RNA sequence: GGGGGGAGGCAGGAUCCUGGGCUGUGUCCCGGCGCCCUGUGCUCCAGGGCCUCCGCUGUUGGAUUCGCGCUCCCAGUCGCUCAGCCGCCG
Numbered sequence: 001g002g003g004g005g006g007a008g009g010c011a012g013g014a015u016c017c018u019g020g021g022c023u024g025u026g027u028c029c030c031g032g033c034g035c036c037c038u039g040u041g042c043u044c045c046a047g048g049g050c051c052u053c054c055g056c057u058g059u060u061g062g063a064u065u066c067g068c069g070c071u072c073c074c075a076g077u078c079g080c081u082c083a084g085c086c087g088c089c090g
Stems, first nucleotide, its partner, number of pairs: 002089002005086002009082001012078002016076001019073003023069004027063003030058005039051001041050003
RNA: mir-8799 microRNA precursor family
Organism: Nyctereutes procyonoides